Rfam assigns this 183-nucleotide RNA from Oscillatoria sp. FACHB-1406 to the family "Ribosomal protein L10 leader". This family is a putative r-protein leader autoregulatory structure found in B. subtilis and other low-GC Gram-positive bacteria. It scores 49 bits against the family's covariance model.

RNA sequence: AUCGCUCUAAACAGCACGCCCGAGAUAGCAGGGGCCAUCAAGCUUAAAUAUCCUGCCGAGGUCGAACAGAUUUUAGAGUUCGGAAUUUGGAACGCUUGCCGGAAAAGCUCGCUCGUCCAAUCUCGAGAACUCUGAAUGAAUGAAACCCCGGCAAUCAACAGCCGGGGUUUUUUGAAUACGGGU
Numbered sequence: 001a002u003c004g005c006u007c008u009a010a011a012c013a014g015c016a017c018g019c020c021c022g023a024g025a026u027a028g029c030a031g032g033g034g035c036c037a038u039c040a041a042g043c044u045u046a047a048a049u050a051u052c053c054u055g056c057c058g059a060g061g062u063c064g065a066a067c068a069g070a071u072u073u074u075a076g077a078g079u080u081c082g083g084a085a086u087u088u089g090g091a092a093c094g095c096u097u098g099c100c101g102g103a104a105a106a107g108c109u110c111g112c113u114c115g116u117c118c119a120a121u122c123u124c125g126a127g128a129a130c131u132c133u134g135a136a137u138g139a140a141u142g143a144a145a146c147c148c149c150g151g152c153a154a155u156c157a158a159c160a161g162c163c164g165g166g167g168u169u170u171u172u173u174g175a176a177u178a179c180g181g182g183u
Base pairs, nucleotide, nucleotide: 028056029055030054031053032052033051034043035042145168146167147166148165149164150163151162152161